[Rfam]
RNA sequence: GGAUCGGGAAGGCCGUCAUACGGGACGACGGCCAUGAAUAGAUCCGAACACGCUGUCUCGUAUGGGCAAGGCGCCGGAGCCCGGCGGCGCUCUUG
Numbered sequence: 001g002g003a004u005c006g007g008g009a010a011g012g013c014c015g016u017c018a019u020a021c022g023g024g025a026c027g028a029c030g031g032c033c034a035u036g037a038a039u040a041g042a043u044c045c046g047a048a049c050a051c052g053c054u055g056u057c058u059c060g061u062a063u064g065g066g067c068a069a070g071g072c073g074c075c076g077g078a079g080c081c082c083g084g085c086g087g088c089g090c091u092c093u094u095g
Stems, first nucleotide, its partner, number of pairs: 001045005011033007067095005072089005
RNA: Rhodo-rpoB RNA
Organism: Tritonibacter aquimaris